[Rfam]
RNA sequence: GCGGUAAAGAAGAGGCUACCCGCUUCUCACCUGAUUGACGCACUAGGCAGUUGGCAGGUUUUACGAAAUGUACUUAUGACGUUUAACGUCUUAUUGAUGCGGGUGUGCUAUUGUGCCACCGGCGUUUUUUUAUGGCU
Numbered sequence: 001g002c003g004g005u006a007a008a009g010a011a012g013a014g015g016c017u018a019c020c021c022g023c024u025u026c027u028c029a030c031c032u033g034a035u036u037g038a039c040g041c042a043c044u045a046g047g048c049a050g051u052u053g054g055c056a057g058g059u060u061u062u063a064c065g066a067a068a069u070g071u072a073c074u075u076a077u078g079a080c081g082u083u084u085a086a087c088g089u090c091u092u093a094u095u096g097a098u099g100c101g102g103g104u105g106u107g108c109u110a111u112u113g114u115g116c117c118a119c120c121g122g123c124g125u126u127u128u129u130u131u132a133u134g135g136c137u
Stems, first nucleotide, its partner, number of pairs: 011027006029059003037052003040048002098124003102120004